[Rfam]
RNA sequence: GUACGUGCACUGGGGGCGGUGAAAUUCCGCGCCGGCGGUUAUAGUCCGCGACCCGGCCACAGCCAGUGGCCGGUUGAUCAGGUGAAAAUCCUGAACCGACGGUGAAAGUCCGGAUGGGAAGCGCGCGUAU
Numbered sequence: 001g002u003a004c005g006u007g008c009a010c011u012g013g014g015g016g017c018g019g020u021g022a023a024a025u026u027c028c029g030c031g032c033c034g035g036c037g038g039u040u041a042u043a044g045u046c047c048g049c050g051a052c053c054c055g056g057c058c059a060c061a062g063c064c065a066g067u068g069g070c071c072g073g074u075u076g077a078u079c080a081g082g083u084g085a086a087a088a089u090c091c092u093g094a095a096c097c098g099a100c101g102g103u104g105a106a107a108g109u110c111c112g113g114a115u116g117g118g119a120a121g122c123g124c125g126c127g128u129a130u
Stems, first nucleotide, its partner, number of pairs: 003128006010121001017029003031109002033098002035049004044096002053073002078094005100112003
Dot-bracket structure: ..((((((.(......(((.......))).[[((((((.....[[))))...((.................))....(((((.......)))))]])).(((.....]])))........).))))))..
Rfam assigns this 130-nucleotide sequence from Flaviflexus salsibiostraticola to the family "FMN riboswitch aptamer (RFN element)". A search with the family's covariance model found it, with a score of 93 bits.